[Rfam]
RNA sequence: AAUUCAGGUAGAGGUUGCGUUCUUUAUCAGUACCUUUUAUGAGGUGUCAGGCGCUGUUAAGGAGAAGGAAAAGGAAAGGACGCCGAAAGCGGUGAGCCGCCUGAGGGUUUGCUGCUUGGGCAUACGGUUAAGAGCCGUAUGACUGUCAUCAACAGAUGGAGAGCUAUCAUUUUC
Numbered sequence: 001a002a003u004u005c006a007g008g009u010a011g012a013g014g015u016u017g018c019g020u021u022c023u024u025u026a027u028c029a030g031u032a033c034c035u036u037u038u039a040u041g042a043g044g045u046g047u048c049a050g051g052c053g054c055u056g057u058u059a060a061g062g063a064g065a066a067g068g069a070a071a072a073g074g075a076a077a078g079g080a081c082g083c084c085g086a087a088a089g090c091g092g093u094g095a096g097c098c099g100c101c102u103g104a105g106g107g108u109u110u111g112c113u114g115c116u117u118g119g120g121c122a123u124a125c126g127g128u129u130a131a132g133a134g135c136c137g138u139a140u141g142a143c144u145g146u147c148a149u150c151a152a153c154a155g156a157u158g159g160a161g162a163g164c165u166a167u168c169a170u171u172u173u174c
Stems, first nucleotide, its partner, number of pairs: 007168005017083009033068006040061001087117012118144002121141008146159005
Dot-bracket structure: ......(((((.....(((((((((.......((((((.(....................).))))))......)))))))))...((((((((((((.......))))))))))))((.((((((((.....)))))))).)).(((((....)))))....)))))......